The record is a 61-nucleotide RNA from Passiflora laurifolia, which matches "Plastid-psbN 5UTR RNA" in Rfam. It is one of the family's seed sequences. Rfam 15.1 lists 2,345 matches to the family in 397 species. Rfam classes the family as a cis-regulatory element. From the family's description: Plastid psbN is a non-coding RNA (ncRNA) recognised in plastids. It was reported as a conserved 11 stem-loop in the prime untranslated region (5UTR) of psbN genes.
RNA sequence: UGCGACGCCCAUCAAAGGAGUAGUUCCCCAUCCCGGAGCUACUUUACCAUAUUCUGAAUUC
Numbered sequence: 001u002g003c004g005a006c007g008c009c010c011a012u013c014a015a016a017g018g019a020g021u022a023g024u025u026c027c028c029c030a031u032c033c034c035g036g037a038g039c040u041a042c043u044u045u046a047c048c049a050u051a052u053u054c055u056g057a058a059u060u061c
Stems, first nucleotide, its partner, number of pairs: 017045011